[Rfam]
RNA sequence: UGAGUCGGCCAGGCGGUCGCGUCGACCGCGCUCGAUCCGGGGGUCACCCCGAUCGGGCGGGUCGCCGAGGAACGUCCGGGCUCCACAGGGCAGGGUGGUGGCUAACGGCCACCCGGGGCGACCCGCGGGACAGUGCCACAGAAAAGAAACCGCCCGUGUACCACCGGCCCAGGCCGGCAGGCGCGGGUAAGGGUGAAACGGUGCGUGUAAGAGACCACCAGCGCCCCAGGUGACUGGGGCGGCUCGGUAAACCCCACCCGGAGCAAGACCAGACAGUGCGCGUUCGAGGGCUGCCCGCCCGAGCGCACGGGUAGGUCGCUAGAGAUGUACGGCAACGUGCAUCCGAGAUGGAUGAUCGCCCACGACAGAACCCGGCGUACCGGCCGACUCAUCCG
Numbered sequence: 001u002g003a004g005u006c007g008g009c010c011a012g013g014c015g016g017u018c019g020c021g022u023c024g025a026c027c028g029c030g031c032u033c034g035a036u037c038c039g040g041g042g043g044u045c046a047c048c049c050c051g052a053u054c055g056g057g058c059g060g061g062u063c064g065c066c067g068a069g070g071a072a073c074g075u076c077c078g079g080g081c082u083c084c085a086c087a088g089g090g091c092a093g094g095g096u097g098g099u100g101g102c103u104a105a106c107g108g109c110c111a112c113c114c115g116g117g118g119c120g121a122c123c124c125g126c127g128g129g130a131c132a133g134u135g136c137c138a139c140a141g142a143a144a145a146g147a148a149a150c151c152g153c154c155c156g157u158g159u160a161c162c163a164c165c166g167g168c169c170c171a172g173g174c175c176g177g178c179a180g181g182c183g184c185g186g187g188u189a190a191g192g193g194u195g196a197a198a199c200g201g202u203g204c205g206u207g208u209a210a211g212a213g214a215c216c217a218c219c220a221g222c223g224c225c226c227c228a229g230g231u232g233a234c235u236g237g238g239g240c241g242g243c244u245c246g247g248u249a250a251a252c253c254c255c256a257c258c259c260g261g262a263g264c265a266a267g268a269c270c271a272g273a274c275a276g277u278g279c280g281c282g283u284u285c286g287a288g289g290g291c292u293g294c295c296c297g298c299c300c301g302a303g304c305g306c307a308c309g310g311g312u313a314g315g316u317c318g319c320u321a322g323a324g325a326u327g328u329a330c331g332g333c334a335a336c337g338u339g340c341a342u343c344c345g346a347g348a349u350g351g352a353u354g355a356u357c358g359c360c361c362a363c364g365a366c367a368g369a370a371c372c373c374g375g376c377g378u379a380c381c382g383g384c385c386g387a388c389u390c391a392u393c394c395g
Stems, first nucleotide, its partner, number of pairs: 001391010012360007020067002023064005072378003076375005081263004088296004093259005098112005113127001114125004128254002133252002135248003150192002152188008200219004205215002221243001222241008267317004276308006288300004324343008
Description:
This 395-nucleotide RNA sequence from Kineosphaera limosa belongs to the Rfam family "Bacterial RNase P class A". Lineage of the source: Bacteria > Micrococcales > Dermatophilaceae > Kineosphaera > Kineosphaera limosa. It is annotated as a ribozyme. The family's consensus secondary structure is taken from published work.